[Rfam]
RNA: c-di-GMP-I riboswitch aptamer
RNA sequence: CUCAGAAAAGGGCUAACUUAUUGAAAAGUAAGGGCGCAAAAUCACAGGUCUAAGGCACUAGGCUAUGGCGGCUGGGUUACCUGG
Numbered sequence: 001c002u003c004a005g006a007a008a009a010g011g012g013c014u015a016a017c018u019u020a021u022u023g024a025a026a027a028g029u030a031a032g033g034g035c036g037c038a039a040a041a042u043c044a045c046a047g048g049u050c051u052a053a054g055g056c057a058c059u060a061g062g063c064u065a066u067g068g069c070g071g072c073u074g075g076g077u078u079a080c081c082u083g084g
Stems, first nucleotide, its partner, number of pairs: 012037002017032006040078004045074003048069003055063002